[Rfam]
Nucleotides: 076
Base pairs, nucleotide, nucleotide: 015058016057017056018055021052022051023050024049025048029044030043031042032041033040034039
Number, partner (000 for none) and nucleotide at each position: 001000u002000g003000a004000a005000g006000u007000u008000g009000u010000u011000g012000c013000c014000u015058u016057c017056u018055c019000u020000u021052c022051c023050c024049g025048g026000u027000u028000c029044u030043u031042c032041c033040u034039g035000g036000a037000g038000u039034c040033g041032g042031g043030a044029g045000a046000a047000g048025c049024u050023g051022g052021g053000u054000u055018g056017a057016g058015a059000u060000g061000g062000c063000c064000a065000a066000a067000g068000a069000a070000a071000a072000a073000a074000a075000a076000c
Shown here is a 76-nucleotide RNA sequence from Callithrix jacchus, a member of the family "mir-320 microRNA precursor family".
The match comes from Rfam's covariance-model search (76 bits).
On this family, see Berezikov et al., Genome Res 2006: "Many novel mammalian microRNA candidates identified by extensive cloning and RAKE analysis".
The source organism's lineage runs through Eukaryota, Deuterostomia, Chordata, Eutheria and Callithrix.
Its family is annotated with cellular response to glucose stimulus, positive regulation of stem cell proliferation and miRNA-mediated post-transcriptional gene silencing in the Gene Ontology.